The family of this 80-nucleotide RNA sequence from Anguilla anguilla is "mir-27 microRNA precursor family".
[Rfam]
RNA sequence: AAAAGGCACAGAGCUUAGCUAAUUGUCGAGCAUUGAUCCCUUUAAUAUAUUGUUCACAGUGGCUAAGUUCAGUGCCUGAG
Numbered sequence: 001a002a003a004a005g006g007c008a009c010a011g012a013g014c015u016u017a018g019c020u021a022a023u024u025g026u027c028g029a030g031c032a033u034u035g036a037u038c039c040c041u042u043u044a045a046u047a048u049a050u051u052g053u054u055c056a057c058a059g060u061g062g063c064u065a066a067g068u069u070c071a072g073u074g075c076c077u078g079a080g
Stems, first nucleotide, its partner, number of pairs: 011070010025057002028055005
On this family, see Chen et al., Genes Dev 2005: "The developmental miRNA profiles of zebrafish as determined by small RNA cloning". NCBI's taxonomy places the organism under Eukaryota, Deuterostomia, Teleostomi, Actinopterygii, Anguilla. Pairs were carried over by alignment from the consensus structure, which was predicted with RNAalifold.